[Rfam]
RNA: Small nucleolar RNA SNORA57
RNA sequence: CCUCUGUCUUGGCGAGCUUCUUUCUCUCAUUGGAGAAGCUCUAAUGCUUCCAGAGGAACAGAAGGUAUUGGGUCUGUAUGCCUUCGGUGCCUGCCCCUCGUUAGCCCCCGCGGGAACGACCAGGGCAGGUCCUAUCCUCAGAAGGCCCUACAAGA
Numbered sequence: 001c002c003u004c005u006g007u008c009u010u011g012g013c014g015a016g017c018u019u020c021u022u023u024c025u026c027u028c029a030u031u032g033g034a035g036a037a038g039c040u041c042u043a044a045u046g047c048u049u050c051c052a053g054a055g056g057a058a059c060a061g062a063a064g065g066u067a068u069u070g071g072g073u074c075u076g077u078a079u080g081c082c083u084u085c086g087g088u089g090c091c092u093g094c095c096c097c098u099c100g101u102u103a104g105c106c107c108c109c110g111c112g113g114g115a116a117c118g119a120c121c122a123g124g125g126c127a128g129g130u131c132c133u134a135u136c137c138u139c140a141g142a143a144g145g146c147c148c149u150a151c152a153a154g155a
Base pairs, nucleotide, nucleotide: 001056002055003054004053005052014041015040016039017038018037020035021034022033023032071147072146073145074144075143090129091128092127093126094125095124096123